[Rfam]
This 243-nucleotide sequence belongs to the Rfam family "T-box leader".

RNA sequence: UCAAUGACGAUGAUAGGGACAGUAUAAUUUUUCUAGGACUUUUUUAGCGAGUCAGGGGUGGUGGAAGCCUGGUAAAGUUGAAAAAUUGAAGAUCACCCUUGAGUUCCAAAGCUGAACUUCCUAAUUUAAGGCUAGUAGGCUUAGGCGUGUUAUUCACGUUACGAAUGCUAAAGAGGAUAGUCGAUUUGAUUCGAACUAUCUAUCAGGGUGGUACCGCGGGAAUAAAACCUUCUCGUCCCUAUU
Numbered sequence: 001u002c003a004a005u006g007a008c009g010a011u012g013a014u015a016g017g018g019a020c021a022g023u024a025u026a027a028u029u030u031u032u033c034u035a036g037g038a039c040u041u042u043u044u045u046a047g048c049g050a051g052u053c054a055g056g057g058g059u060g061g062u063g064g065a066a067g068c069c070u071g072g073u074a075a076a077g078u079u080g081a082a083a084a085a086u087u088g089a090a091g092a093u094c095a096c097c098c099u100u101g102a103g104u105u106c107c108a109a110a111g112c113u114g115a116a117c118u119u120c121c122u123a124a125u126u127u128a129a130g131g132c133u134a135g136u137a138g139g140c141u142u143a144g145g146c147g148u149g150u151u152a153u154u155c156a157c158g159u160u161a162c163g164a165a166u167g168c169u170a171a172a173g174a175g176g177a178u179a180g181u182c183g184a185u186u187u188g189a190u191u192c193g194a195a196c197u198a199u200c201u202a203u204c205a206g207g208g209u210g211g212u213a214c215c216g217c218g219g220g221a222a223u224a225a226a227a228c229c230u231u232c233u234c235g236u237c238c239c240u241a242u243u
Stems, first nucleotide, its partner, number of pairs: 007104002015099004026086001028084003040076003051073006107144001109142005146158003176200006205240004216236007